Rfam assigns this 78-nucleotide sequence from Alligator mississippiensis to the family "Mammalian CPEB3 ribozyme".
The mammalian CPEB3 ribozyme is a self cleaving RNA located in the second intron of the CPEB3 gene which belongs to a family of genes regulating messenger RNA polyadenylation.
For this family Rfam cites "A genomewide search for ribozymes reveals an HDV-like sequence in the human CPEB3 gene" (Salehi-Ashtiani et al., Science, 2006).
RNA sequence: AUUGGCUUAAUAAUGGCCAUAGCAGAAGUGUUCACGUUGCAACCCUGGUCAGAUUCCAAUGAAUCUGCUAUAUUCUCU
Numbered sequence: 001a002u003u004g005g006c007u008u009a010a011u012a013a014u015g016g017c018c019a020u021a022g023c024a025g026a027a028g029u030g031u032u033c034a035c036g037u038u039g040c041a042a043c044c045c046u047g048g049u050c051a052g053a054u055u056c057c058a059a060u061g062a063a064u065c066u067g068c069u070a071u072a073u074u075c076u077c078u
Stems, first nucleotide, its partner, number of pairs: 013046001015044002021078002025074002028040003050067007